[Rfam]
RNA: small nucleolar RNA snoR13
RNA sequence: UUUCGAGAAUGAUGACAACGCUUCUCAUAUGUUCGCAGUUGAGAGUUCCAUUAGAACAACUCGAUGAAUUGUCUUUGUAGCCUUCACUUAGAUGUCUGACGCGGAAA
Number, nucleotide and partner (000 for none) at each position: 001u107002u106003u105004c104005g000006a000007g000008a000009a000010u000011g000012a000013u000014g000015a000016c000017a000018a000019c000020g000021c000022u000023u000024c000025u000026c000027a000028u000029a000030u000031g000032u000033u000034c000035g000036c000037a000038g000039u000040u000041g000042a000043g000044a000045g000046u000047u000048c000049c000050a000051u000052u000053a000054g000055a000056a000057c000058a000059a000060c000061u000062c000063g000064a000065u000066g000067a000068a000069u000070u000071g000072u000073c000074u000075u000076u000077g000078u000079a000080g000081c000082c000083u000084u000085c000086a000087c000088u000089u000090a000091g000092a000093u000094g000095u000096c000097u000098g000099a000100c000101g000102c000103g000104g004105a003106a002107a001